[Rfam]
RNA sequence: AAACAUAAUGAUGAAAAAAAAUUUUAUCAAACAGUUAUCCCUGUCUGAAUGGGUAAUAAUAGGUAACCUCUCAUAUGUUGAUAUUUGUAUUUCUGAUAUGUUU
Numbered sequence: 001a002a003a004c005a006u007a008a009u010g011a012u013g014a015a016a017a018a019a020a021a022u023u024u025u026a027u028c029a030a031a032c033a034g035u036u037a038u039c040c041c042u043g044u045c046u047g048a049a050u051g052g053g054u055a056a057u058a059a060u061a062g063g064u065a066a067c068c069u070c071u072c073a074u075a076u077g078u079u080g081a082u083a084u085u086u087g088u089a090u091u092u093c094u095g096a097u098a099u100g101u102u103u
Stems, first nucleotide, its partner, number of pairs: 001103007
Dot-bracket structure: (((((((.........................................................................................)))))))